[Rfam]
RNA: sRNA-Xcc1
Organism: Methylomagnum ishizawai
RNA sequence: GGGCGGGAGUGUGACGGAUACAAGACCUGUGAAGGGAAGAAGUCCGCCCGAUCCUGGUUUUUGGGUUUCUAGCUCCCGCCCACCCCGCU
Numbered sequence: 001g002g003g004c005g006g007g008a009g010u011g012u013g014a015c016g017g018a019u020a021c022a023a024g025a026c027c028u029g030u031g032a033a034g035g036g037a038a039g040a041a042g043u044c045c046g047c048c049c050g051a052u053c054c055u056g057g058u059u060u061u062u063g064g065g066u067u068u069c070u071a072g073c074u075c076c077c078g079c080c081c082a083c084c085c086c087g088c089u
Base pairs, nucleotide, nucleotide: 001081002080003079004078005077006076007075008074009073013044014043015042026035027034028033046066047065048064049063050062051061